[Rfam]
RNA sequence: GAGGCUGGAGGUCAACACCCGACAGCGCGUUGCGCCCUCGGGUGCGUUUCGU
Numbered sequence: 001g002a003g004g005c006u007g008g009a010g011g012u013c014a015a016c017a018c019c020c021g022a023c024a025g026c027g028c029g030u031u032g033c034g035c036c037c038u039c040g041g042g043u044g045c046g047u048u049u050c051g052u
Stems, first nucleotide, its partner, number of pairs: 016044007025035004
RNA: ffh sRNA
Organism: Chelatococcus composti